[Rfam]
RNA sequence: CGAACGAAAAGCUUGUGUUAAGGGCAAACAUACAUAUGGACAAGGGUUUAUCCCUUUCUCAUAUCAAAUAAAUACCCUUGGGAAGGUCUGAGAAAAACCACAAUUCGUCUUUAGUUGAGAUUCUUGCGAGAGCGAGAGGUAAAUCACCAGAAACGAUACCCUCCUAACUUGGCAUUGAAAUCUUUCCAAGAUGGAUUGCUUCUGGGUUAGGAAAUGGUUGAGACGCGGUUUAUCGGUGUAGUUCUAUGAAGUGGAAUACGCAAGACAUCACAUUGUGAUGUAACUCAAUUCAGACUACUCUUUCGUUCG
Numbered sequence: 001c002g003a004a005c006g007a008a009a010a011g012c013u014u015g016u017g018u019u020a021a022g023g024g025c026a027a028a029c030a031u032a033c034a035u036a037u038g039g040a041c042a043a044g045g046g047u048u049u050a051u052c053c054c055u056u057u058c059u060c061a062u063a064u065c066a067a068a069u070a071a072a073u074a075c076c077c078u079u080g081g082g083a084a085g086g087u088c089u090g091a092g093a094a095a096a097a098c099c100a101c102a103a104u105u106c107g108u109c110u111u112u113a114g115u116u117g118a119g120a121u122u123c124u125u126g127c128g129a130g131a132g133c134g135a136g137a138g139g140u141a142a143a144u145c146a147c148c149a150g151a152a153a154c155g156a157u158a159c160c161c162u163c164c165u166a167a168c169u170u171g172g173c174a175u176u177g178a179a180a181u182c183u184u185u186c187c188a189a190g191a192u193g194g195a196u197u198g199c200u201u202c203u204g205g206g207u208u209a210g211g212a213a214a215u216g217g218u219u220g221a222g223a224c225g226c227g228g229u230u231u232a233u234c235g236g237u238g239u240a241g242u243u244c245u246a247u248g249a250a251g252u253g254g255a256a257u258a259c260g261c262a263a264g265a266c267a268u269c270a271c272a273u274u275g276u277g278a279u280g281u282a283a284c285u286c287a288a289u290u291c292a293g294a295c296u297a298c299u300c301u302u303u304c305g306u307u308c309g
Base pairs, nucleotide, nucleotide: 001309002308003307004306007303008302009301012264013263014262015261016260017259018258020079021078022077023076024075042056043055044054045053046052088293089292090291091290092289097237098236099235107121108120109119110118111117122137123136124135125134126133127132139233140232141231142230143229144228145227159217160216265281266280267279268278269277270276271275

A member of the RNA family "Nuclear RNase P" from Ambispora gerdemannii, 309 nucleotides long.
The base pairs follow the family's consensus structure, which is taken from published work.
Rfam's curators write: Ribonuclease P (RNase P) is a ubiquitous endoribonuclease, found in archaea, bacteria and eukarya as well as chloroplasts and mitochondria. Its best characterised activity is the generation of mature 5'-ends of tRNAs by cleaving the 5'-leader elements of precursor-tRNAs. Cellular RNase Ps are ribonucleoproteins. RNA from bacterial RNase Ps retains its catalytic activity in the absence of the protein subunit, i.e. it is a ribozyme. Isolated eukaryotic and archaeal RNase P RNA has not been shown to retain its catalytic function, but is still essential for the catalytic activity of the holoenzyme. Although the archaeal and eukaryotic holoenzyme s have a much greater protein content than the bacterial ones, the RNA cores from all the three lineages are homologous -- helices corresponding to P1, P2, P3, P4, and P10/11 are common to all cellular RNase P RNAs. Yet, there is considerable sequence variation, particularly among the eukaryotic RNAs.